Rfam assigns this 75-nucleotide RNA from Methylobacterium nodulans to the family "Makes More Granules Regulator RNA (mmgR)". A search with the family's covariance model found it, with a score of 70 bits. Taxonomically the source falls in Methylobacterium nodulans (Bacteria, Pseudomonadati, Alphaproteobacteria, Methylobacteriaceae). Clan: suhB sRNA clan. It is annotated as a small RNA.
RNA sequence: UCUCGCUGCCCUCCUUGGGCGUUUCCUCCCUAGACUUCGGGCCGAUCCGCGAGGACGGCCUUUUUUUUGCCCUGC
Numbered sequence: 001u002c003u004c005g006c007u008g009c010c011c012u013c014c015u016u017g018g019g020c021g022u023u024u025c026c027u028c029c030c031u032a033g034a035c036u037u038c039g040g041g042c043c044g045a046u047c048c049g050c051g052a053g054g055a056c057g058g059c060c061u062u063u064u065u066u067u068u069g070c071c072c073u074g075c
Base pairs, nucleotide, nucleotide: 008020009019010018011017040060041059042058043057044056046054047053